[Rfam]
RNA sequence: CGGUCCGAACGCGGGAGCCCGGUGCAACGGGCUGAGAGGACGGCUGGAGCAGCCGCCGACCGCCAGAACCUGAUCCGGGUAAUGCCGGCGAAGGGAGUUUGCGCGAUGAGCGA
Numbered sequence: 001c002g003g004u005c006c007g008a009a010c011g012c013g014g015g016a017g018c019c020c021g022g023u024g025c026a027a028c029g030g031g032c033u034g035a036g037a038g039g040a041c042g043g044c045u046g047g048a049g050c051a052g053c054c055g056c057c058g059a060c061c062g063c064c065a066g067a068a069c070c071u072g073a074u075c076c077g078g079g080u081a082a083u084g085c086c087g088g089c090g091a092a093g094g095g096a097g098u099u100u101g102c103g104c105g106a107u108g109a110g111c112g113a
Base pairs, nucleotide, nucleotide: 006101007100008099009098010097011063012062013061014060017032018031019030020029021028039057041055042054043053044052045051046050069094070093071092075088076087077086078085
Overview: The record is a 113-nucleotide sequence from Nonomuraea endophytica, which matches "TPP riboswitch aptamer (THI element)" in Rfam. Its family is annotated with thiamine pyrophosphate binding in the Gene Ontology. Lineage of the source: Bacteria > Bacillati > Actinomycetes > Streptosporangiaceae > Nonomuraea.